[Rfam]
RNA sequence: AGCUCGAGUUUCUCUUGAUCUACGCAGAAAUCUUCCGCCUUUAACGAAAAAGAUUUCCGCAGAGCAAAACCACCGUGAGUUUAAUGUAAUUUUUGAAGGCUUCGCUCACAGCAGGCCU
Numbered sequence: 001a002g003c004u005c006g007a008g009u010u011u012c013u014c015u016u017g018a019u020c021u022a023c024g025c026a027g028a029a030a031u032c033u034u035c036c037g038c039c040u041u042u043a044a045c046g047a048a049a050a051a052g053a054u055u056u057c058c059g060c061a062g063a064g065c066a067a068a069a070c071c072a073c074c075g076u077g078a079g080u081u082u083a084a085u086g087u088a089a090u091u092u093u094u095g096a097a098g099g100c101u102u103c104g105c106u107c108a109c110a111g112c113a114g115g116c117c118u
Stems, first nucleotide, its partner, number of pairs: 003079004009067002012064003016061002028056007097118006
U5 spliceosomal RNA: a 118-nucleotide RNA sequence from Triplophysa tibetana. The match comes from Rfam's covariance-model search (41 bits). Pairs were carried over by alignment from the consensus structure, which is taken from published work.